Record summary:
This 60-nucleotide RNA sequence from Sporanaerobacter sp. PP17-6a belongs to the Rfam family "Fluoride riboswitch aptamer (crcB RNA motif)". Pairs were carried over by alignment from the consensus structure, which is taken from published work. The match comes from Rfam's covariance-model search (50 bits).
[Rfam]
RNA sequence: UAAAAUUCAGGUGAUGGAGUUCACCUUUAAAUGCUUUUUGCUAAUGACUCCUCCUUAAUA
Numbered sequence: 001u002a003a004a005a006u007u008c009a010g011g012u013g014a015u016g017g018a019g020u021u022c023a024c025c026u027u028u029a030a031a032u033g034c035u036u037u038u039u040g041c042u043a044a045u046g047a048c049u050c051c052u053c054c055u056u057a058a059u060a
Stems, first nucleotide, its partner, number of pairs: 010025004016051006033041002